[Rfam]
Nucleotides: 063
Stems, first nucleotide, its partner, number of pairs: 005028006012022001044063007
Number, partner (000 for none) and nucleotide at each position: 001000g002000g003000g004000u005028g006027u007026a008025u009024c010023g011000a012022c013000g014000c015000a016000u017000g018000u019000c020000g021000c022012g023010c024009g025008g026007u027006g028005c029000a030000g031000g032000u033000u034000a035000a036000a037000a038000g039000u040000g041000a042000c043000g044063c045062g046061u047060u048059g049058g050057u051000c052000g053000g054000g055000c056000c057050g058049c059048c060047a061046a062045c063044g